[Rfam]
RNA: Pseudomonas rnk leader
Organism: Pseudomonas sp. Boi14
RNA sequence: CUCGUACGGUUUGUUUAUUCAGUGUGCUGUGAUAGUGUCCAGCUUCGCCUCGCUACAUCGAGGCCGGUGAGAACCCCGUCUUAUUUGGCGGGGUUUUGCUUUUUU
Numbered sequence: 001c002u003c004g005u006a007c008g009g010u011u012u013g014u015u016u017a018u019u020c021a022g023u024g025u026g027c028u029g030u031g032a033u034a035g036u037g038u039c040c041a042g043c044u045u046c047g048c049c050u051c052g053c054u055a056c057a058u059c060g061a062g063g064c065c066g067g068u069g070a071g072a073a074c075c076c077c078g079u080c081u082u083a084u085u086u087g088g089c090g091g092g093g094u095u096u097u098g099c100u101u102u103u104u105u
Base pairs, nucleotide, nucleotide: 003052004051019035021033023031024030070097071096072095073094074093075092076091077090078089079088080087